A member of the RNA family "Small nucleolar RNA SNORA11" from Galemys pyrenaicus, 126 nucleotides long. About the family: U107 (SNORA11) is a member of the H/ACA class of snoRNAs that guide the sites of modification of uridines to pseudouridines. The family's RNA type in Rfam is H/ACA-box small nucleolar RNA. The match comes from Rfam's covariance-model search (118 bits). The family has 35 seed sequences and 2,014 matches in Rfam 15.1.
RNA sequence: GGGGUGUGCUCAGAGCAGGGGGCCCGAAGAAAUGGCUCCUCUGUUUACAACACACCCAACAGGGAUCUGGGUCCGUGACAAGGGCAGGAGGCUCGUGGCCCUUCUAUGAACAAGUACCCUACAUAU
Numbered sequence: 001g002g003g004g005u006g007u008g009c010u011c012a013g014a015g016c017a018g019g020g021g022g023c024c025c026g027a028a029g030a031a032a033u034g035g036c037u038c039c040u041c042u043g044u045u046u047a048c049a050a051c052a053c054a055c056c057c058a059a060c061a062g063g064g065a066u067c068u069g070g071g072u073c074c075g076u077g078a079c080a081a082g083g084g085c086a087g088g089a090g091g092c093u094c095g096u097g098g099c100c101c102u103u104c105u106a107u108g109a110a111c112a113a114g115u116a117c118c119c120u121a122c123a124u125a126u
Base pairs, nucleotide, nucleotide: 002057003056004055005054006053007052008051013046014045015044016043017042018041019040020039021038022036023035024034070119071118075111076110079108080107082101083100084099085097086096088094089093